This 283-nucleotide RNA sequence from Nannospalax galili belongs to the Rfam family "Mason-Pfizer monkey virus packaging signal". It is annotated as a cis-regulatory element. The source organism's lineage runs through Eukaryota, Opisthokonta, Vertebrata, Theria and Nannospalax. This family represents a group of sequences that are related to the Mason-Pfizer monkey virus (MPMV) packaging signal. The literature on the family includes a 2004 paper in Virus Res by Mustafa et al., "Mutational analysis of the predicted secondary RNA structure of the Mason-Pfizer monkey virus packaging signal". The base pairs follow the family's consensus structure, which was predicted with PFOLD.
[Rfam]
RNA sequence: UGGCGCCCAACGUGGGGCUUGGAUACUGGGGACAACGUGAGGGAGGCGACGGAGAAGAAGGGGUGCGCACCCACUAAAUCUCAAGCAAUUUGGAGAUGGGCCGCGGGAGCCUGCCGCGACUGAACUGAAGGUAUAAGUCAAGCCGUCUGAAUCAUGGGGCAAGAAUUAAGCCAGCAUCAGAUUUAUGUUAUACAGUUAAGGGAAGCUCUCAAGACAAGAGGAGUAAAGGUUACGACUGAGGAUUUAUUUCAUUUCUUUGAUUUUGUAAAGGACAUUUGUCCCU
Number, nucleotide and partner (000 for none) at each position: 001u000002g000003g000004c000005g000006c031007c030008c029009a000010a000011c000012g026013u025014g024015g000016g000017g000018c000019u000020u000021g000022g000023a000024u014025a013026c012027u000028g000029g008030g007031g006032a000033c000034a000035a000036c048037g047038u046039g000040a000041g000042g000043g000044a000045g000046g038047c037048g036049a000050c000051g000052g000053a000054g000055a000056a000057g000058a000059a000060g000061g000062g000063g000064u000065g000066c000067g000068c000069a000070c000071c000072c000073a000074c000075u000076a000077a000078a000079u000080c000081u000082c000083a000084a000085g134086c000087a132088a000089u000090u129091u128092g000093g000094a000095g000096a000097u124098g000099g121100g000101c000102c118103g117104c116105g115106g114107g000108a000109g000110c000111c000112u000113g000114c106115c105116g104117c103118g102119a000120c000121u099122g000123a000124a097125c000126u000127g000128a091129a090130g000131g000132u087133a000134u085135a000136a000137g000138u000139c000140a000141a000142g160143c159144c000145g000146u158147c157148u156149g155150a000151a000152u000153c000154a000155u149156g148157g147158g146159g143160c142161a000162a000163g000164a000165a000166u000167u000168a209169a000170g206171c205172c000173a000174g000175c000176a000177u000178c000179a000180g000181a000182u000183u000184u000185a000186u000187g000188u000189u000190a000191u000192a000193c000194a000195g000196u000197u000198a000199a000200g000201g000202g000203a000204a000205g171206c170207u000208c000209u168210c000211a000212a000213g000214a000215c000216a000217a000218g258219a257220g256221g255222a254223g253224u000225a000226a000227a245228g244229g243230u242231u241232a000233c000234g000235a000236c000237u000238g000239a000240g000241g231242a230243u229244u228245u227246a000247u000248u000249u000250c000251a000252u000253u223254u222255c221256u220257u219258u218259g000260a000261u000262u000263u000264u000265g000266u000267a000268a283269a000270g281271g280272a279273c278274a000275u000276u000277u000278g273279u272280c271281c270282c000283u268